[Rfam]
The record is a 143-nucleotide sequence from Tatumella morbirosei, which matches "isrN Hfq binding RNA" in Rfam. A reference for the family is Padalon-Brauch et al. (2008), "Small RNAs encoded within genetic islands of Salmonella typhimurium show host-induced expression and role in virulence", Nucleic Acids Res. The family has 17 seed sequences and 141 matches in Rfam 15.1.
RNA sequence: CAAUAACAGUGUCAUUACGCCGUGUAUCCGGUUUGUAGAAGAAUACCGUCCUGCUCAGUGAUAAUGUCCUGCAUGCCUGACGUGUGCUCAUUGUAAACUGCGAAAUCAGAUAAUGGGCGAGCUCACGCUUUAUCACUGGUUUU
Numbered sequence: 001c002a003a004u005a006a007c008a009g010u011g012u013c014a015u016u017a018c019g020c021c022g023u024g025u026a027u028c029c030g031g032u033u034u035g036u037a038g039a040a041g042a043a044u045a046c047c048g049u050c051c052u053g054c055u056c057a058g059u060g061a062u063a064a065u066g067u068c069c070u071g072c073a074u075g076c077c078u079g080a081c082g083u084g085u086g087c088u089c090a091u092u093g094u095a096a097a098c099u100g101c102g103a104a105a106u107c108a109g110a111u112a113a114u115g116g117g118c119g120a121g122c123u124c125a126c127g128c129u130u131u132a133u134c135a136c137u138g139g140u141u142u143u
Base pairs, nucleotide, nucleotide: 025112026111027110028109030107031106048077050075052073053072054071058067059066060065081102082101083100116141117140118139120137121136